[Rfam]
Annotation
The record is an 80-nucleotide sequence from Caenorhabditis brenneri, which matches "SmY spliceosomal RNA" in Rfam. Rfam classes the family as a spliceosomal small nuclear RNA. The sequence is in the family's curated seed alignment. Lineage of the source: Eukaryota > Opisthokonta > Nematoda > Rhabditidae > Caenorhabditis.
RNA sequence: GUGUAAUUUUAAUUACUCUUAAGGCCUUGAAUAAGACCCAGUGAACAAUUUUUGGAGACCCUAUUCUCAGGAAUAGGGUG
Dot-bracket structure: ......................((.(((....))).))...................(((((((((....))))))))).
Numbered sequence: 001g002u003g004u005a006a007u008u009u010u011a012a013u014u015a016c017u018c019u020u021a022a023g024g025c026c027u028u029g030a031a032u033a034a035g036a037c038c039c040a041g042u043g044a045a046c047a048a049u050u051u052u053u054g055g056a057g058a059c060c061c062u063a064u065u066c067u068c069a070g071g072a073a074u075a076g077g078g079u080g
Stems, first nucleotide, its partner, number of pairs: 023038002026035003058079009